[Rfam]
The family of this 82-nucleotide sequence from Clostridium sulfidigenes is "c-di-GMP-I riboswitch aptamer". The base pairs follow the family's consensus structure, which is taken from published work. Gene Ontology term of the family: cyclic-di-GMP binding. The organism belongs to Clostridium, within Bacteria. Rfam's curators write: GEMM was predicted in a large-scale screen for bacterial structured RNA regulatory elements. Genes associated with GEMM are involved in a diverse array of functions, including chemotaxis regulation, signal transduction, secretion and chitin.
RNA sequence: AAAUUAAAUAGGCAAAACUGACGAAAGUUAGUGACGCAAAGCUACAGGGGCUAAGCCUAAGGUAUGCCAGCCAGUUGCCAAA
Numbered sequence: 001a002a003a004u005u006a007a008a009u010a011g012g013c014a015a016a017a018c019u020g021a022c023g024a025a026a027g028u029u030a031g032u033g034a035c036g037c038a039a040a041g042c043u044a045c046a047g048g049g050g051c052u053a054a055g056c057c058u059a060a061g062g063u064a065u066g067c068c069a070g071c072c073a074g075u076u077g078c079c080a081a082a
Stems, first nucleotide, its partner, number of pairs: 012037002017032006040076004047072002049068003056062002
Dot-bracket structure: ...........((...((((((....))))))...))..((((...(((((....((...))...)))..))))))......